[Rfam]
RNA: L31-Gammaproteobacteria ribosomal protein leader
RNA sequence: CGUAUGGUGUUUGGCUUCGGGCCAAAUAGCGAUACGGCCUCAUAUUGAAGGU
Number, nucleotide and partner (000 for none) at each position: 001c036002g035003u034004a033005u032006g000007g030008u029009g000010u000011u025012u024013g023014g022015c021016u000017u000018c000019g000020g000021g015022c014023c013024a012025a011026a000027u000028a000029g008030c007031g000032a005033u004034a003035c002036g001037g000038c000039c000040u000041c000042a000043u000044a000045u000046u000047g000048a000049a000050g000051g000052u000